[Rfam]
RNA: tRNA
RNA sequence: GCCUCGAUAGCUCAGUGGUAGAGCACUUCCUUGGUAAGGAAGAGGUCGCGGGUCCAAUUCCCGCUCGAGGCU
Numbered sequence: 001g002c003c004u005c006g007a008u009a010g011c012u013c014a015g016u017g018g019u020a021g022a023g024c025a026c027u028u029c030c031u032u033g034g035u036a037a038g039g040a041a042g043a044g045g046u047c048g049c050g051g052g053u054c055c056a057a058u059u060c061c062c063g064c065u066c067g068a069g070g071c072u
Stems, first nucleotide, its partner, number of pairs: 001071007010024004026042005048064005